The record is an 81-nucleotide RNA sequence from Myotis davidii, which matches "mir-574 microRNA precursor family" in Rfam. Clan: mir-574 microRNA precursor clan. Rfam links the family to the GO terms miRNA-mediated post-transcriptional gene silencing and RISC complex. A search with the family's covariance model found it, with a score of 95 bits.
[Rfam]
RNA sequence: AGACCCGGAGAGAGAGGCAAGGUCUGAUCCUCAGCCUCUGUGGCAGCUGUUGAUCAGCCAUUGCCCCUCUCUCUUUCUCUC
Numbered sequence: 001a002g003a004c005c006c007g008g009a010g011a012g013a014g015a016g017g018c019a020a021g022g023u024c025u026g027a028u029c030c031u032c033a034g035c036c037u038c039u040g041u042g043g044c045a046g047c048u049g050u051u052g053a054u055c056a057g058c059c060a061u062u063g064c065c066c067c068u069c070u071c072u073c074u075u076u077c078u079c080u081c
Stems, first nucleotide, its partner, number of pairs: 008073007016065005022059001024057006032049004
On this family, see Lui et al., Cancer Res 2007: "Patterns of known and novel small RNAs in human cervical cancer".